Shown here is a 95-nucleotide RNA from Arsukibacterium sp. MJ3, a member of the family "t44 RNA". This family consists of a number of bacterial RNA genes of between 135 and 170 bases in length. The family's consensus secondary structure was predicted with LocARNA. By type it is a small RNA. The match comes from Rfam's covariance-model search (82 bits).
RNA sequence: AACUUACAUUUUAAAUAACACACAUGCAUCGACACAUGUACCGGGGUGCCUAAGCGAAAGCGAUGGUCGGGAUAUGGGAUGCAUGGAGGCCUAAC
Dot-bracket structure: ......................((((((((....(((((.(((....(((..............)))))).))))).))))))))..........